[Rfam]
RNA sequence: CGUCGUGUGAGGAGUGAGGAAGCAACCGACGGGGUCGAAACGAGGACAGACUCCCGAACGUUGUUUCCAUCG
Number, nucleotide and partner (000 for none) at each position: 001c000002g000003u000004c000005g000006u000007g000008u000009g000010a000011g000012g000013a000014g000015u000016g000017a000018g000019g067020a066021a065022g064023c063024a000025a000026c000027c060028g059029a000030c000031g055032g054033g053034g051035u050036c049037g000038a000039a000040a000041c000042g000043a000044g000045g000046a000047c000048a000049g036050a035051c034052u000053c033054c032055c031056g000057a000058a000059c028060g027061u000062u000063g023064u022065u021066u020067c019068c000069a000070u000071c000072g000
The family of this 72-nucleotide sequence from Synechococcus sp. CBW1004 is "Cyano-1 RNA". The family's consensus secondary structure is taken from published work. Lineage of the source: Bacteria > Bacillati > Cyanophyceae > Synechococcales > Synechococcus. The family has 265 seed sequences and 283 matches in Rfam 15.1. The match comes from Rfam's covariance-model search (50 bits).